A member of the RNA family "JUMPstart RNA" from Vibrio sp. qd031, 39 nucleotides long. The family has 128 seed sequences and 288 matches in Rfam 15.1.
[Rfam]
RNA sequence: AGGCAAAGUGGGAGCCAAAAACCCAAGGGCGGUAGCGUG
Numbered sequence: 001a002g003g004c005a006a007a008g009u010g011g012g013a014g015c016c017a018a019a020a021a022c023c024c025a026a027g028g029g030c031g032g033u034a035g036c037g038u039g
Stems, first nucleotide, its partner, number of pairs: 009025004
Lineage of the source: Bacteria > Pseudomonadota > Gammaproteobacteria > Vibrionaceae > Vibrio. The family's RNA type in Rfam is cis-regulatory element.